[Rfam]
RNA sequence: GGACCAGCUCUAGCUCUGUGGCUCCUUCAGUACUGCAAUCCCGACAUCCCCCCUCAGGGUUUGAGACCUGUGGGUGCUCUCUAGUCCUCAG
Number, nucleotide and partner (000 for none) at each position: 001g000002g086003a085004c084005c000006a082007g081008c000009u000010c000011u000012a000013g075014c074015u073016c072017u000018g071019u070020g069021g068022c000023u000024c000025c000026u065027u064028c063029a062030g061031u000032a000033c000034u000035g000036c000037a000038a000039u000040c000041c000042c000043g000044a000045c000046a000047u000048c000049c000050c000051c000052c000053c000054u000055c000056a000057g000058g000059g000060u000061u030062u029063g028064a027065g026066a000067c000068c021069u020070g019071u018072g016073g015074g014075u013076g000077c000078u000079c000080u000081c007082u006083a000084g004085u003086c002087c000088u000089c000090a000091g000